[Rfam]
RNA sequence: AUAGCUGAAUUGUUGGCUAUACGGUUUUUAGAUGGCCCCGUUAAUCUUCUCUUAGUCGCCAAACUUGCUGAAGAUUAUCGGGGUUUUCACUU
Number, nucleotide and partner (000 for none) at each position: 001a020002u019003a018004g017005c016006u000007g000008a000009a000010u000011u000012g000013u000014u000015g000016g005017c004018u003019a002020u001021a000022c000023g000024g000025u000026u000027u000028u000029u000030a091031g090032a000033u000034g085035g084036c083037c082038c081039c080040g079041u000042u077043a076044a075045u074046c073047u072048u071049c000050u000051c000052u000053u000054a000055g000056u000057c000058g000059c000060c000061a000062a000063a000064c000065u000066u000067g000068c000069u000070g000071a048072a047073g046074a045075u044076u043077a042078u000079c040080g039081g038082g037083g036084u035085u034086u000087u000088c000089a000090c031091u030092u000
Overview: A member of the RNA family "CopA-like RNA" from Escherichia coli, 92 nucleotides long. It is one of the family's seed sequences. From the family's description: In several groups of bacterial plasmids, antisense RNAs regulate copy number through inhibition of replication initiator protein synthesis. NCBI's taxonomy places the organism under Bacteria, Pseudomonadati, Enterobacterales, Enterobacteriaceae, Escherichia coli. A reference for the family is Light and Molin (1983), "Post-transcriptional control of expression of the repA gene of plasmid R1 mediated by a small RNA molecule", EMBO J.